RNA sequence: AGCCUUGCGCAUAGGCGGUAACGUGACCAAUGAGGCUUAGCCGAGGUGCGUUUAUUGCUGGUUGAAAACUUUCACCCAAUUGCCCGCUGCGACUCCUGAAAAAUGGAUGUUGUUGGCAAUUUUUGAAUGCUCCGAAGGGAG
Number, nucleotide and partner (000 for none) at each position: 001a000002g000003c000004c000005u000006u000007g000008c000009g000010c000011a000012u000013a000014g000015g000016c000017g000018g000019u000020a052021a051022c050023g049024u048025g000026a047027c046028c045029a000030a000031u000032g000033a000034g042035g041036c040037u000038u000039a000040g036041c035042c034043g000044a000045g028046g027047u026048g024049c023050g022051u021052u020053u000054a000055u000056u000057g000058c000059u000060g000061g000062u000063u000064g000065a000066a000067a000068a000069c000070u000071u000072u000073c000074a000075c000076c000077c000078a000079a000080u000081u000082g000083c000084c000085c000086g117087c116088u115089g113090c112091g111092a110093c109094u000095c000096c106097u105098g104099a000100a000101a000102a000103a000104u098105g097106g096107a000108u000109g093110u092111u091112g090113u089114u000115g088116g087117c086118a000119a000120u000121u000122u000123u000124u000125g000126a000127a000128u000129g000130c141131u140132c139133c138134g000135a000136a000137g000138g133139g132140a131141g130